This 110-nucleotide RNA from Sorex araneus belongs to the Rfam family "Small nucleolar RNA SNORD89". The family's consensus secondary structure was predicted with RNAalifold. It is one of the family's seed sequences. From the family's description: snoRNA HBII-289 belongs to the family of C/D snoRNAs. It is the human orthologue of the mouse MBII-289 and has no identified RNA target. Lineage of the source: Eukaryota > Sarcopterygii > Dipnotetrapodomorpha > Mammalia > Sorex. The family's RNA type in Rfam is C/D-box small nucleolar RNA.
RNA sequence: GCCGAGGAAUGAUGACAAUAAAAGGCCGAAUUGCAGUGUCUCCCCAGCAGUUGGCUCUCUGGGUGCACGAUGACAAAACCCCCCGAAGCGAACCCCAUUCUGACCUCGGC
Numbered sequence: 001g002c003c004g005a006g007g008a009a010u011g012a013u014g015a016c017a018a019u020a021a022a023a024g025g026c027c028g029a030a031u032u033g034c035a036g037u038g039u040c041u042c043c044c045c046a047g048c049a050g051u052u053g054g055c056u057c058u059c060u061g062g063g064u065g066c067a068c069g070a071u072g073a074c075a076a077a078a079c080c081c082c083c084c085g086a087a088g089c090g091a092a093c094c095c096c097a098u099u100c101u102g103a104c105c106u107c108g109g110c
Stems, first nucleotide, its partner, number of pairs: 001110007014100002025034002036096001038094001041091002043088001045085001047083001050068002054064004069082001072079001